[Rfam]
RNA sequence: AAAAAGGGCUUCUGUCGUGAGUGGCACACAUAGAGCGACUCGAUUGCUCUUCGUGGGGAAUCCACAUGAAGAGAUUUCAGAAGCAUAAUUUUUUGGUAUUUGGGCAGCUGGUGAUCAUUGUUCCUGGCACCCUC
Numbered sequence: 001a002a003a004a005a006g007g008g009c010u011u012c013u014g015u016c017g018u019g020a021g022u023g024g025c026a027c028a029c030a031u032a033g034a035g036c037g038a039c040u041c042g043a044u045u046g047c048u049c050u051u052c053g054u055g056g057g058g059a060a061u062c063c064a065c066a067u068g069a070a071g072a073g074a075u076u077u078c079a080g081a082a083g084c085a086u087a088a089u090u091u092u093u094u095g096g097u098a099u100u101u102g103g104g105c106a107g108c109u110g111g112u113g114a115u116c117a118u119u120g121u122u123c124c125u126g127g128c129a130c131c132c133u134c
Stems, first nucleotide, its partner, number of pairs: 008084005013026005027055003032050007057078006102132003107128005113123002116120001
RNA: U11 spliceosomal RNA